[Rfam]
RNA sequence: UCCUCGCCCAAAGAAUCGCAGGCGAAGCUCACACACAGAGACACGAAUUUCGUGCUCUCACAGACACACAAAGCUUUGGGAGAAAGUCCCCGGACGACGCCCGCCGCGCGCGGGCGCGCUCGCGUCAACGCGCCGCCACAGAAGCAACGCGGUCUCUCGUCUCACUCCGCCUCGGCCAGCACGCCCGUCGCCGCUCGCACGCCCUGCGCCUGCUCCCGCGCGCGCCCUUCUCGCCCCCUGCGCUGUCCCUCUGGACGAGGAUAUGAGUCCGGGCAGAGCAUGGCUGGAGCGCUGCGCGUGGGUGCUUGGGCCUGGGCGGAGGCGUCGGGGAUACCGUGCUGGGCGAUGUAGGUCGCCGCAAGGUAGUGGGGAGGGUUUUUUUUCGUCGAGAAGAUAGUUAUGCGAUUGCCCUCUUCCGCUUUGGGAGGGGGUAACUCGAUGGGGCUUAUUCUUGGUGCGAGG
Numbered sequence: 001u002c003c004u005c006g007c008c009c010a011a012a013g014a015a016u017c018g019c020a021g022g023c024g025a026a027g028c029u030c031a032c033a034c035a036c037a038g039a040g041a042c043a044c045g046a047a048u049u050u051c052g053u054g055c056u057c058u059c060a061c062a063g064a065c066a067c068a069c070a071a072a073g074c075u076u077u078g079g080g081a082g083a084a085a086g087u088c089c090c091c092g093g094a095c096g097a098c099g100c101c102c103g104c105c106g107c108g109c110g111c112g113g114g115c116g117c118g119c120u121c122g123c124g125u126c127a128a129c130g131c132g133c134c135g136c137c138a139c140a141g142a143a144g145c146a147a148c149g150c151g152g153u154c155u156c157u158c159g160u161c162u163c164a165c166u167c168c169g170c171c172u173c174g175g176c177c178a179g180c181a182c183g184c185c186c187g188u189c190g191c192c193g194c195u196c197g198c199a200c201g202c203c204c205u206g207c208g209c210c211u212g213c214u215c216c217c218g219c220g221c222g223c224g225c226c227c228u229u230c231u232c233g234c235c236c237c238c239u240g241c242g243c244u245g246u247c248c249c250u251c252u253g254g255a256c257g258a259g260g261a262u263a264u265g266a267g268u269c270c271g272g273g274c275a276g277a278g279c280a281u282g283g284c285u286g287g288a289g290c291g292c293u294g295c296g297c298g299u300g301g302g303u304g305c306u307u308g309g310g311c312c313u314g315g316g317c318g319g320a321g322g323c324g325u326c327g328g329g330g331a332u333a334c335c336g337u338g339c340u341g342g343g344c345g346a347u348g349u350a351g352g353u354c355g356c357c358g359c360a361a362g363g364u365a366g367u368g369g370g371g372a373g374g375g376u377u378u379u380u381u382u383u384c385g386u387c388g389a390g391a392a393g394a395u396a397g398u399u400a401u402g403c404g405a406u407u408g409c410c411c412u413c414u415u416c417c418g419c420u421u422u423g424g425g426a427g428g429g430g431g432u433a434a435c436u437c438g439a440u441g442g443g444g445c446u447u448a449u450u451c452u453u454g455g456u457g458c459g460a461g462g
Stems, first nucleotide, its partner, number of pairs: 002462006008455004014407006023078006038059004042054005084447003088444004109118003154375003160371006169364004173358004344351001409431008
Shown here is a 462-nucleotide RNA from Aplosporella prunicola, a member of the family "RNase MRP". The match comes from Rfam's covariance-model search (77 bits). The organism belongs to Aplosporella prunicola, within Eukaryota.